[Rfam]
RNA: Small nucleolar RNA SNORA17
RNA sequence: CCUGCCCCUUGAGGCGUUGCAGUCUGAUGCCUGUGUCAUAAGGGGCAGAGAGUGAAAGGGCUAUGUCUACGCCCCAGAACGGUGGGUACUUGGGGUGAUCAUGGCUCCGACAGA
Numbered sequence: 001c002c003u004g005c006c007c008c009u010u011g012a013g014g015c016g017u018u019g020c021a022g023u024c025u026g027a028u029g030c031c032u033g034u035g036u037c038a039u040a041a042g043g044g045g046c047a048g049a050g051a052g053u054g055a056a057a058g059g060g061c062u063a064u065g066u067c068u069a070c071g072c073c074c075c076a077g078a079a080c081g082g083u084g085g086g087u088a089c090u091u092g093g094g095g096u097g098a099u100c101a102u103g104g105c106u107c108c109g110a111c112a113g114a
Base pairs, nucleotide, nucleotide: 002048003047004046005045006044007043008042009041010040011039013037014036015035019034020033021032022031024029058108059107060105061104062103063102064101070097071096073094074093075092076091077089079087080086